[Rfam]
RNA sequence: GCUGUUUUCGGGUGGAUGACUCUGCAAUUUCAACACGCGAUGCAAUGAAAGAAAUUGCACAGUAUCCAUCUGCAACCCGCC
Dot-bracket structure: ........(((((((((.((..(((((((((...................)))))))))..))))))))))).........
mir-363 microRNA precursor family: an 81-nucleotide RNA from Anabas testudineus. A reference for the family is Linsen et al. (2010), "Small RNA expression and strain specificity in the rat", BMC Genomics. Pairs were carried over by alignment from the consensus structure, which was predicted with RNAalifold.